[Rfam]
RNA sequence: CUGCGGACUUAGAAAACUGAGCCUUGUUUGAGAAAUCUUACAAGUGGAAGCUCUCAAACUCAGGGAAACCUAAGUCGAAGUGCAUCAGUUGGCAGGGGGUCGAGGAGAUGAUUGCUUCGGACCUCGCGCUAGCUGAAGACAAGAUAGGGCAAUCCUGAGCCAAGCCAAACGAAAGGGAGCGGCAGCAGCCACGCAGUAGAUAUUGCGGUUCUGGCCGUUGACGACCUUUUCUAAGGAAGGUGCAGAGACCCGACGGGAGCUACCCUAGCGGUUCGGCCGAGGGUAAAGGGAGGGUCCAAUUCUCAAGACCUCUUGCGC
Numbered sequence: 001c002u003g004c005g006g007a008c009u010u011a012g013a014a015a016a017c018u019g020a021g022c023c024u025u026g027u028u029u030g031a032g033a034a035a036u037c038u039u040a041c042a043a044g045u046g047g048a049a050g051c052u053c054u055c056a057a058a059c060u061c062a063g064g065g066a067a068a069c070c071u072a073a074g075u076c077g078a079a080g081u082g083c084a085u086c087a088g089u090u091g092g093c094a095g096g097g098g099g100u101c102g103a104g105g106a107g108a109u110g111a112u113u114g115c116u117u118c119g120g121a122c123c124u125c126g127c128g129c130u131a132g133c134u135g136a137a138g139a140c141a142a143g144a145u146a147g148g149g150c151a152a153u154c155c156u157g158a159g160c161c162a163a164g165c166c167a168a169a170c171g172a173a174a175g176g177g178a179g180c181g182g183c184a185g186c187a188g189c190c191a192c193g194c195a196g197u198a199g200a201u202a203u204u205g206c207g208g209u210u211c212u213g214g215c216c217g218u219u220g221a222c223g224a225c226c227u228u229u230u231c232u233a234a235g236g237a238a239g240g241u242g243c244a245g246a247g248a249c250c251c252g253a254c255g256g257g258a259g260c261u262a263c264c265c266u267a268g269c270g271g272u273u274c275g276g277c278c279g280a281g282g283g284u285a286a287a288g289g290g291a292g293g294g295u296c297c298a299a300u301u302c303u304c305a306a307g308a309c310c311u312c313u314u315g316c317g318c
Stems, first nucleotide, its partner, number of pairs: 005024002008021005030037001049261005055255001060158006069149003073145001159241002165235001172229004245297001247296005263283004268278001304315004

Notes: Rfam assigns this 318-nucleotide RNA sequence from Synechococcales cyanobacterium C42_A2020_086 to the family "Group I catalytic intron". Rfam 15.1 lists 5,602 matches to the family in 1,395 species. The base pairs follow the family's consensus structure, which is taken from published work. About the family: Group I catalytic introns are large self-splicing ribozymes. Gene Ontology term of the family: Group I intron splicing. The organism belongs to Synechococcales, within Bacteria.